The family of this 589-nucleotide part of an RNA from Thermoanaerobacterium thermosaccharolyticum is "Bacterial large subunit ribosomal RNA".
NCBI's taxonomy places the organism under Bacteria, Clostridia, Thermoanaerobacterales, Thermoanaerobacteraceae, Thermoanaerobacterium thermosaccharolyticum.
The sequence is in the family's curated seed alignment.
[Rfam]
RNA sequence: CCCGCGACAGGACAGAAAGACCCCAUGGAGCUUUACUGCAGCUUGUCACUGAAUUUUAGUAAUAUCUGUACAGGAUAGGUGGGAGGCGGAGAAAGAUGGGCGCAAGCCUAUCUGGAGCCGACGUUGGGAUACCACCCUGAUAUUACCGAAAUUCUAACAUAGGAGCCGUAAGCCGGCAUAUGGACACUGACAGGCGGGCAGUUUGACUGGGGCGGUCGCCUCCCAAAGAGUAACGGAGGCGUCCAAAGGUUACCUCAGCGCGGAAGGAAAUCGCGCGUAAGAGUGCAAAGGCAGAAGGUAGCCUAACUGCGAGAAAGACAAUUCGAGCAGGGACGAAAGUCGGGCUUAGUGAUCCGGCGGUAGAGAAUGGGAUUGCCGUCGCUCAACGGAUAAAAGCUACCCUGGGGAUAACAGGCUGAUCUCCCCCAAGAGUCCACAUCGACGGGGAGGUUUGGCACCUCGAUGUCGGCUCAUCGCAUCCUGGGGCUGAAGUAGGUCCCAAGGGUUGGGCUGUUCGCCCAUUAAAGCGGUACGCGAGCUGGGUUCAGAACGUCGUGAGACAGUUCGGUCCCUAUCCGUCGCGGGCGUA
Numbered sequence: 001c002c003c004g005c006g007a008c009a010g011g012a013c014a015g016a017a018a019g020a021c022c023c024c025a026u027g028g029a030g031c032u033u034u035a036c037u038g039c040a041g042c043u044u045g046u047c048a049c050u051g052a053a054u055u056u057u058a059g060u061a062a063u064a065u066c067u068g069u070a071c072a073g074g075a076u077a078g079g080u081g082g083g084a085g086g087c088g089g090a091g092a093a094a095g096a097u098g099g100g101c102g103c104a105a106g107c108c109u110a111u112c113u114g115g116a117g118c119c120g121a122c123g124u125u126g127g128g129a130u131a132c133c134a135c136c137c138u139g140a141u142a143u144u145a146c147c148g149a150a151a152u153u154c155u156a157a158c159a160u161a162g163g164a165g166c167c168g169u170a171a172g173c174c175g176g177c178a179u180a181u182g183g184a185c186a187c188u189g190a191c192a193g194g195c196g197g198g199c200a201g202u203u204u205g206a207c208u209g210g211g212g213c214g215g216u217c218g219c220c221u222c223c224c225a226a227a228g229a230g231u232a233a234c235g236g237a238g239g240c241g242u243c244c245a246a247a248g249g250u251u252a253c254c255u256c257a258g259c260g261c262g263g264a265a266g267g268a269a270a271u272c273g274c275g276c277g278u279a280a281g282a283g284u285g286c287a288a289a290g291g292c293a294g295a296a297g298g299u300a301g302c303c304u305a306a307c308u309g310c311g312a313g314a315a316a317g318a319c320a321a322u323u324c325g326a327g328c329a330g331g332g333a334c335g336a337a338a339g340u341c342g343g344g345c346u347u348a349g350u351g352a353u354c355c356g357g358c359g360g361u362a363g364a365g366a367a368u369g370g371g372a373u374u375g376c377c378g379u380c381g382c383u384c385a386a387c388g389g390a391u392a393a394a395a396g397c398u399a400c401c402c403u404g405g406g407g408a409u410a411a412c413a414g415g416c417u418g419a420u421c422u423c424c425c426c427c428a429a430g431a432g433u434c435c436a437c438a439u440c441g442a443c444g445g446g447g448a449g450g451u452u453u454g455g456c457a458c459c460u461c462g463a464u465g466u467c468g469g470c471u472c473a474u475c476g477c478a479u480c481c482u483g484g485g486g487c488u489g490a491a492g493u494a495g496g497u498c499c500c501a502a503g504g505g506u507u508g509g510g511c512u513g514u515u516c517g518c519c520c521a522u523u524a525a526a527g528c529g530g531u532a533c534g535c536g537a538g539c540u541g542g543g544u545u546c547a548g549a550a551c552g553u554c555g556u557g558a559g560a561c562a563g564u565u566c567g568g569u570c571c572c573u574a575u576c577c578g579u580c581g582c583g584g585g586c587g588u589a
Base pairs, nucleotide, nucleotide: 001585002584003583004582005581006580007579008578010577011576012575015571022406023405024404025403027402028401029398030397031396032395033394035202036201037200038199042194043193044192045191046190047189048188051154052153053152054151055150056149057148059146060145061144062143063142064141065140066139068137078136079135080134081133082132085119086118087117094113095112096111097110098109099108100107101106158182159181160180163179165177166176167175168174205217206216207215208214218240219239220238221237222236223235241387243344244343249302250301251300252299253298254297255282256281258276259275260274261273262272263271283292284291307330308329309328310327313324314323315322332341333340334339355381356380357379358378359377360376361375363374364373415456416455417454419453420450421449422448423447424446425445426444430440431439467542468540469539470538471537472534473531474530475529476528477527480505481504483500484499485498486497487496488495507521508520509519510518511517548566549565550564551563552561553560554559